Overview
Rfam assigns this 108-nucleotide RNA from Komagataeibacter saccharivorans to the family "SAM-I/IV (S-adenosyl methionine) riboswitch aptamer". Pairs were carried over by alignment from the consensus structure, which is taken from published work.

RNA sequence: CACCUGCAUCAAGAGUUGGGGCGACGCCCAACGCCAACCUGCCGUUCCGGGCAAGGUGGCGCUCCUGAAAGGGAGGAUGUGGCCGAACCGGCAACCAAACGGAGCAAG
Numbered sequence: 001c002a003c004c005u006g007c008a009u010c011a012a013g014a015g016u017u018g019g020g021g022c023g024a025c026g027c028c029c030a031a032c033g034c035c036a037a038c039c040u041g042c043c044g045u046u047c048c049g050g051g052c053a054a055g056g057u058g059g060c061g062c063u064c065c066u067g068a069a070a071g072g073g074a075g076g077a078u079g080u081g082g083c084c085g086a087a088c089c090g091g092c093a094a095c096c097a098a099a100c101g102g103a104g105c106a107a108g
Stems, first nucleotide, its partner, number of pairs: 006080005015032006033060003038056003041052003045104005082092004
On this family, see Weinberg et al., RNA 2008: "The aptamer core of SAM-IV riboswitches mimics the ligand-binding site of SAM-I riboswitches".